Rfam assigns this 177-nucleotide sequence from Piscibacillus halophilus to the family "glmS glucosamine-6-phosphate activated ribozyme aptamer". Lineage of the source: Bacteria > Bacillati > Bacilli > Bacillaceae > Piscibacillus. The family's consensus secondary structure is taken from published work.
RNA sequence: UAAUAAUUUAAAGCGCCAGGACUAUUUCUAUGAACGGUAUUAUUAGAAAUAGUUGACGAGGAGAAGGUUUCAUCGAAUGAUCGGCGGGUGCCUUCCAGCUGCUAGUCAUCUCAGCUGAAUGUUUUAGUUGAAAACAUAGAGGCAACUCUAUGCACAACCAACUUAAACAAGAUGACA
Dot-bracket structure: ...................((((((((.(...............).))))))))........(((((.....((((....))))......)))))((((((..........))))))....(((.(((......(((((((....)))))))........))).)))..........